A member of the RNA family "Small nucleolar RNA Z39" from Upupa epops, 63 nucleotides long. A search with the family's covariance model found it, with a score of 40 bits. The family has 5 seed sequences and 935 matches in Rfam 15.1. The source organism's lineage runs through Eukaryota, Bilateria, Amniota, Archelosauria and Upupa. The literature on the family includes a 2003 paper in Nucleic Acids Res by Chen et al., "The high diversity of snoRNAs in plants: identification and comparative study of 120 snoRNA genes from Oryza sativa". Pairs were carried over by alignment from the consensus structure, which was predicted with PFOLD. Its family is annotated with RNA processing and nucleolus in the Gene Ontology.

[Rfam]
RNA sequence: GUACAGAUGAUGAGCAUUGCACUGUGAGCAGCUACAAUGAUAUUGUAAACGCUUUCUGAUGUA
Numbered sequence: 001g002u003a004c005a006g007a008u009g010a011u012g013a014g015c016a017u018u019g020c021a022c023u024g025u026g027a028g029c030a031g032c033u034a035c036a037a038u039g040a041u042a043u044u045g046u047a048a049a050c051g052c053u054u055u056c057u058g059a060u061g062u063a
Stems, first nucleotide, its partner, number of pairs: 002063004012055001013053003020045002023042003